[Rfam]
RNA: FMN riboswitch aptamer (RFN element)
RNA sequence: GAUUAUCUUCGGGGAAAGGUGCAAUUCCUUACCGGCGGUGAUGCCCGUUUUGGGAUGAGCCCGCGAGCCAGAAGGCCGAUUUGGUGAGAAUCCAAAGCCGACAGUUAAAGUCUGGAUGGGAGAAGAUAGUU
Dot-bracket structure: ..((((((((......(((.......))).[[((((((....................[[))))..(((....)))...(((((.......)))))]])).(((.....]]))).......))))))))..